[Rfam]
RNA: UnaL2 LINE 3' element
RNA sequence: UUCUAAAUGCAUUGUAAGUUGCUCUGGAUAAGAGCAUCUGCAAAAUGACUCAAA
Numbered sequence: 001u002u003c004u005a006a007a008u009g010c011a012u013u014g015u016a017a018g019u020u021g022c023u024c025u026g027g028a029u030a031a032g033a034g035c036a037u038c039u040g041c042a043a044a045a046u047g048a049c050u051c052a053a054a
Stems, first nucleotide, its partner, number of pairs: 013043001014041003020036006